About this RNA: mir-2060 microRNA precursor family: an 86-nucleotide RNA from Branchiostoma lanceolatum. The family has 7 seed sequences and 3,696 matches in Rfam 15.1. The organism belongs to Branchiostoma, within Eukaryota.

[Rfam]
RNA sequence: GUGCGUGGAUGGUGUUCAGCACCAGAGACAGGUGUUUUCACCUUUGUGUGGAUGGUGUUCAGCACCAAGGACAGGUAUGUUCACAU
Numbered sequence: 001g002u003g004c005g006u007g008g009a010u011g012g013u014g015u016u017c018a019g020c021a022c023c024a025g026a027g028a029c030a031g032g033u034g035u036u037u038u039c040a041c042c043u044u045u046g047u048g049u050g051g052a053u054g055g056u057g058u059u060c061a062g063c064a065c066c067a068a069g070g071a072c073a074g075g076u077a078u079g080u081u082c083a084c085a086u
Stems, first nucleotide, its partner, number of pairs: 001072002010067007018059007026047001028045001030043005